[Rfam]
RNA sequence: GAGCGAAGGACCCAGCAGGGAAGCGAGUAAUGCUCAUGAAAUGAGGCUUCUCUAACAAAUUUAUUUAACCUUCGUAGAUUAAGUCUCUCCAAGAGAUCGUUGAUUAUCUGUUGUUAUAGGAUUGUCGUGAGUUCUUGGUGUAAAGUU
Numbered sequence: 001g002a003g004c005g006a007a008g009g010a011c012c013c014a015g016c017a018g019g020g021a022a023g024c025g026a027g028u029a030a031u032g033c034u035c036a037u038g039a040a041a042u043g044a045g046g047c048u049u050c051u052c053u054a055a056c057a058a059a060u061u062u063a064u065u066u067a068a069c070c071u072u073c074g075u076a077g078a079u080u081a082a083g084u085c086u087c088u089c090c091a092a093g094a095g096a097u098c099g100u101u102g103a104u105u106a107u108c109u110g111u112u113g114u115u116a117u118a119g120g121a122u123u124g125u126c127g128u129g130a131g132u133u134c135u136u137g138g139u140g141u142a143a144a145g146u147u
Stems, first nucleotide, its partner, number of pairs: 003075007011020003025052003033045005089138007102126002106122004110117002